[Rfam]
Small nucleolar RNA R160: an 81-nucleotide RNA from Morus notabilis.
RNA sequence: AGCAAAAUGAUGAAAAGUGUUUGAUUCUGAAUUUCUAAUGUGGAAGUUCUUUAUAGUGGUCUUCAAAGUUCUCUGAUUGCU
Numbered sequence: 001a002g003c004a005a006a007a008u009g010a011u012g013a014a015a016a017g018u019g020u021u022u023g024a025u026u027c028u029g030a031a032u033u034u035c036u037a038a039u040g041u042g043g044a045a046g047u048u049c050u051u052u053a054u055a056g057u058g059g060u061c062u063u064c065a066a067a068g069u070u071c072u073c074u075g076a077u078u079g080c081u
Stems, first nucleotide, its partner, number of pairs: 001081005
Rfam links the family to the GO terms nucleolus and RNA processing. About the family: snoR160 is a C/D box small nucleolar RNA, which acts as a methylation guide for 25S ribosomal RNA in plants. snoR160 has been alternatively named snoZ270 in rice. The organism belongs to Morus, within Eukaryota.